Small nucleolar RNA SNORA14: a 134-nucleotide RNA from Labrus bergylta.
Rfam 15.1 lists 848 matches to the family in 633 species.
The base pairs follow the family's consensus structure, which was predicted with RNAfold.
RNA sequence: GAGCACCCUCAUAAACCCCCCGGUCUCCUCCUGUGGUCUCUGGGACAAGAGAGGGUGCGAGAUCAAUCUUAGAAUCAUCCAAAGCUGAGUGCUGAGUGUCCGUAGCUCUCGGUUAUUUCACCUCUAAGACAGAA
Numbered sequence: 001g002a003g004c005a006c007c008c009u010c011a012u013a014a015a016c017c018c019c020c021c022g023g024u025c026u027c028c029u030c031c032u033g034u035g036g037u038c039u040c041u042g043g044g045a046c047a048a049g050a051g052a053g054g055g056u057g058c059g060a061g062a063u064c065a066a067u068c069u070u071a072g073a074a075u076c077a078u079c080c081a082a083a084g085c086u087g088a089g090u091g092c093u094g095a096g097u098g099u100c101c102g103u104a105g106c107u108c109u110c111g112g113u114u115a116u117u118u119c120a121c122c123u124c125u126a127a128g129a130c131a132g133a134a
Stems, first nucleotide, its partner, number of pairs: 003058004008051003019044005025036001063133002067129007083114007091106002097102001